The record is a 62-nucleotide sequence from Microcebus murinus, which matches "U7 small nuclear RNA" in Rfam.
[Rfam]
RNA sequence: UAGUGUUACAGUUCUUUGAGAAUCUGUCUAGCAGGUUUUCUGGUCCUCACCAGAAGACCCCC
Numbered sequence: 001u002a003g004u005g006u007u008a009c010a011g012u013u014c015u016u017u018g019a020g021a022a023u024c025u026g027u028c029u030a031g032c033a034g035g036u037u038u039u040c041u042g043g044u045c046c047u048c049a050c051c052a053g054a055a056g057a058c059c060c061c062c
Stems, first nucleotide, its partner, number of pairs: 034059011
Dot-bracket structure: .................................(((((((((((....)))))))))))...

The base pairs follow the family's consensus structure, which was predicted with PFOLD.